[Rfam]
RNA sequence: AUAUCGUUUUUUCUUCGAGCCUGGACUCCUAACAGGAAACUCAUGGAUAAAGGCCUGGGUAGCAAUUACCCACGGGGUUAUUUGGGAAACCGAAUGGCCUAUUCUCUCUAUAAAGAAGAAAGGUUAUUUAAUCU
Numbered sequence: 001a002u003a004u005c006g007u008u009u010u011u012u013c014u015u016c017g018a019g020c021c022u023g024g025a026c027u028c029c030u031a032a033c034a035g036g037a038a039a040c041u042c043a044u045g046g047a048u049a050a051a052g053g054c055c056u057g058g059g060u061a062g063c064a065a066u067u068a069c070c071c072a073c074g075g076g077g078u079u080a081u082u083u084g085g086g087a088a089a090c091c092g093a094a095u096g097g098c099c100u101a102u103u104c105u106c107u108c109u110a111u112a113a114a115g116a117a118g119a120a121a122g123g124u125u126a127u128u129u130a131a132u133c134u
Stems, first nucleotide, its partner, number of pairs: 003128001006125001011120006019054004025048001027047003034041002056072005075100011101111002
Rfam assigns this 134-nucleotide RNA from Ammoniphilus oxalaticus to the family "Molybdenum/Tungsten riboswitch aptamer (Moco RNA motif)". The base pairs follow the family's consensus structure, which is taken from published work. Its family is annotated with tungstate binding, molybdenum ion binding and regulation of gene expression in the Gene Ontology.